RNA sequence: GGCCGGGGGUGGGCGAAUACAACACCUUCGGGGAAUAACCCCGGUGCUCCUACAGCACUUUUGAGCCCCUGGCCGCCUGCGC
Number, nucleotide and partner (000 for none) at each position: 001g074002g073003c072004c071005g070006g069007g068008g067009g066010u000011g000012g042013g041014c000015g000016a036017a000018u000019a000020c000021a000022a000023c000024a000025c032026c031027u000028u000029c000030g000031g026032g025033g000034a000035a000036u016037a000038a000039c000040c000041c013042c012043g059044g058045u057046g056047c055048u054049c000050c000051u000052a000053c000054a048055g047056c046057a045058c044059u043060u000061u000062u000063g000064a000065g000066c009067c008068c007069c006070u005071g004072g003073c002074c001075g000076c000077c000078u000079g000080c000081g000082c000
This 82-nucleotide sequence from Acidithiobacillus caldus belongs to the Rfam family "sRNA-Xcc1". Pairs were carried over by alignment from the consensus structure, which was predicted with RNAalifold. It is annotated as a small RNA. The source organism's lineage runs through Bacteria, Pseudomonadota, Acidithiobacillales, Acidithiobacillus and Acidithiobacillus caldus.